[Rfam]
RNA sequence: CUGCAUGAGGCAAACCCCGGGCUUGUCUGAUUAUAUGGGUGACGAAGAAAGCCCCAGUUCUCGUGCUAAAUCGCUGCCGUUCGUGUUACAGUUCUGCCCCUUGGCUGAUCUGCGUCAAAUCAACGGCCACAUGU
Dot-bracket structure: ..((((((.(........((((((.((................))..).))))).....))))))).........((((((..((.(.(((....(((....)))....))).).))....)))))).......
Numbered sequence: 001c002u003g004c005a006u007g008a009g010g011c012a013a014a015c016c017c018c019g020g021g022c023u024u025g026u027c028u029g030a031u032u033a034u035a036u037g038g039g040u041g042a043c044g045a046a047g048a049a050a051g052c053c054c055c056a057g058u059u060c061u062c063g064u065g066c067u068a069a070a071u072c073g074c075u076g077c078c079g080u081u082c083g084u085g086u087u088a089c090a091g092u093u094c095u096g097c098c099c100c101u102u103g104g105c106u107g108a109u110c111u112g113c114g115u116c117a118a119a120u121c122a123a124c125g126g127c128c129a130c131a132u133g134u
Stems, first nucleotide, its partner, number of pairs: 003066006010060001019054005024048001026045002076127006084117002087114001089112003096105003
Description:
A member of the RNA family "small nucleolar RNA snoR134" from Cephalotus follicularis, 134 nucleotides long. By type it is an H/ACA-box small nucleolar RNA. The source organism's lineage runs through Eukaryota, Euphyllophyta, Magnoliopsida, Cephalotaceae and Cephalotus. For this family Rfam cites "Mining small RNA sequencing data: a new approach to identify small nucleolar RNAs in Arabidopsis" (Chen and Wu, Nucleic Acids Res, 2009).